RNA sequence: UGAAAACGUUUUAAAAUAGAGACGUUCUUGAAUUUCGUUUAAAUGGAAAAGGAUUGCCAACUGUCAGACAAAAAUAACAGUUGGAAGGAGAUUAUUCUUUUUCAUUUUAGCGAAAAAAUUUUUAAAAGGAGGAAGAACAAGA
Numbered sequence: 001u002g003a004a005a006a007c008g009u010u011u012u013a014a015a016a017u018a019g020a021g022a023c024g025u026u027c028u029u030g031a032a033u034u035u036c037g038u039u040u041a042a043a044u045g046g047a048a049a050a051g052g053a054u055u056g057c058c059a060a061c062u063g064u065c066a067g068a069c070a071a072a073a074a075u076a077a078c079a080g081u082u083g084g085a086a087g088g089a090g091a092u093u094a095u096u097c098u099u100u101u102u103c104a105u106u107u108u109a110g111c112g113a114a115a116a117a118a119u120u121u122u123u124a125a126a127a128g129g130a131g132g133a134a135g136a137a138c139a140a141g142a
Stems, first nucleotide, its partner, number of pairs: 006025007026136004033115007041107014057084008
Source information: A member of the RNA family "Streptococcus sRNA SSRC34" from Streptococcus porcinus, 142 nucleotides long. Lineage of the source: Bacteria > Bacillati > Bacillota > Bacilli > Streptococcus porcinus. By type it is a small RNA. The literature on the family includes a 2013 paper in PLoS One by Tesorero et al., "Novel Regulatory Small RNAs in Streptococcus pyogenes". Rfam describes the family as follows. It is based on computationally predicted coordinates (RNAz).